[Rfam]
RNA sequence: AGCUUUGCACAGUGGCUGGCAGUAUGGUAGCCAAUGAGGUUUAGCCAAGGCAUAAUUAUUGCUAAUUGAAAACUUCUCCCAACACAAAUACCACACCAUGACGACUUGAAAUAUAGUUGGCAUUGGCAAUUUUUGACAGUCUGUACAGA
Numbered sequence: 001a002g003c004u005u006u007g008c009a010c011a012g013u014g015g016c017u018g019g020c021a022g023u024a025u026g027g028u029a030g031c032c033a034a035u036g037a038g039g040u041u042u043a044g045c046c047a048a049g050g051c052a053u054a055a056u057u058a059u060u061g062c063u064a065a066u067u068g069a070a071a072a073c074u075u076c077u078c079c080c081a082a083c084a085c086a087a088a089u090a091c092c093a094c095a096c097c098a099u100g101a102c103g104a105c106u107u108g109a110a111a112u113a114u115a116g117u118u119g120g121c122a123u124u125g126g127c128a129a130u131u132u133u134u135g136a137c138a139g140u141c142u143g144u145a146c147a148g149a
Stems, first nucleotide, its partner, number of pairs: 024056002027053002030051003038046003096126002098123003102119005140149003